[Rfam]
Nucleotides: 102
Stems, first nucleotide, its partner, number of pairs: 016092001018090005025083004030078007039070001041068006
Number, partner (000 for none) and nucleotide at each position: 001000u002000c003000c004000g005000a006000a007000g008000a009000u010000u011000u012000g013000g014000a015000u016092c017000a018090g019089a020088c021087c022086u023000c024000c025083g026082c027081c028080a029000a030078u031077u032076u033075u034074u035073g036072c037000a038000g039070c040000g041068g042067u043066g044065g045064u046063a047000u048000u049000c050000c051000g052000a053000a054000g055000c056000a057000a058000g059000u060000g061000g062000u063046u064045a065044u066043c067042a068041c069000c070039g071000g072036g073035u074034g075033a076032a077031a078030a079000c080028u081027g082026g083025u084000a085000g086022a087021g088020g089019u090018c091000c092016g093000u094000u095000u096000u097000a098000u099000u100000c101000a102000g
Shown here is a 102-nucleotide sequence from Caenorhabditis nigoni, a member of the family "mir-36 microRNA precursor family". Gene Ontology terms of the family: RISC complex and miRNA-mediated post-transcriptional gene silencing. The base pairs follow the family's consensus structure, which was predicted with WAR. Lineage of the source: Eukaryota > Opisthokonta > Bilateria > Protostomia > Caenorhabditis. A search with the family's covariance model found it, with a score of 56 bits.